This 110-nucleotide RNA sequence from Candidatus Profftia tarda belongs to the Rfam family "Alpha operon ribosome binding site". Rfam describes the family as follows. The bacterial alpha operon ribosome binding site is surrounded by this complex pseudoknotted structure. For this family Rfam cites "Translational repression of the Escherichia coli alpha operon mRNA: importance of an mRNA conformational switch and a ternary entrapment complex" (Schlax et al., J Biol Chem, 2001). By type it is a cis-regulatory element. The match comes from Rfam's covariance-model search (80 bits). The source organism's lineage runs through Bacteria, Pseudomonadati, Gammaproteobacteria, Enterobacteriaceae and Candidatus Profftia.
RNA sequence: UUGCGUCAGUAUCAUUUUAGUAUCCUGAAAGCGGGCUUGCCAAAGUGUUACUGUUGUGUAAACUUUAGGAGUGUAUAGUGGCCCGUAUAGCAGGAAUUAAUAUUCCUAAU
Numbered sequence: 001u002u003g004c005g006u007c008a009g010u011a012u013c014a015u016u017u018u019a020g021u022a023u024c025c026u027g028a029a030a031g032c033g034g035g036c037u038u039g040c041c042a043a044a045g046u047g048u049u050a051c052u053g054u055u056g057u058g059u060a061a062a063c064u065u066u067a068g069g070a071g072u073g074u075a076u077a078g079u080g081g082c083c084c085g086u087a088u089a090g091c092a093g094g095a096a097u098u099a100a101u102a103u104u105c106c107u108a109a110u
Base pairs, nucleotide, nucleotide: 004056005055007053008052009051010050011049013047024094025093026092032085033084034083035082042107